[Rfam]
This 72-nucleotide RNA sequence from Heliomicrobium modesticaldum belongs to the Rfam family "tRNA".
Rfam classes the family as a transfer RNA.
The organism belongs to Heliomicrobium modesticaldum, within Bacteria.
Nucleotides: 072
Base pairs, nucleotide, nucleotide: 001071002070003069004068005067006066007065010025011024012023013022027043028042029041030040031039048064049063050062051061052060
Number, partner (000 for none) and nucleotide at each position: 001071g002070c003069g004068c005067c006066c007065g008000u009000a010025g011024c012023u013022c014000a015000g016000u017000g018000g019000a020000u021000a022013g023012a024011g025010c026000g027043c028042u029041g030040g031039u032000c033000u034000c035000c036000g037000g038000a039031a040030c041029c042028a043027g044000g045000u046000g047000c048064g049063c050062a051061a052060g053000u054000u055000c056000g057000a058000u059000u060052c061051u062050u063049g064048c065007c066006g067005g068004g069003c070002g071001c072000a